[Rfam]
RNA: chrB-b RNA
RNA sequence: CGGGGAUAGCAAGCGGACUCCCCGGCUUGCCCAGACGCUCGCCGCGUCCAAGCUCUGC
Numbered sequence: 001c002g003g004g005g006a007u008a009g010c011a012a013g014c015g016g017a018c019u020c021c022c023c024g025g026c027u028u029g030c031c032c033a034g035a036c037g038c039u040c041g042c043c044g045c046g047u048c049c050a051a052g053c054u055c056u057g058c
Base pairs, nucleotide, nucleotide: 001024002023003022004021005020006019013058014057015056016055017054034048035047036046037045038044